Background
msiK RNA: a 58-nucleotide RNA from Nostocoides australiense. NCBI's taxonomy places the organism under Bacteria, Bacillati, Actinomycetes, Nostocoides, Nostocoides australiense.
RNA sequence: GGCGUUCCACCUUUACAACGGAUCGUCCGGCACGUUCCUGCCGGUGAAGGAGUACUGC
Numbered sequence: 001g002g003c004g005u006u007c008c009a010c011c012u013u014u015a016c017a018a019c020g021g022a023u024c025g026u027c028c029g030g031c032a033c034g035u036u037c038c039u040g041c042c043g044g045u046g047a048a049g050g051a052g053u054a055c056u057g058c
Stems, first nucleotide, its partner, number of pairs: 010050006027044006

The family's consensus secondary structure is taken from published work.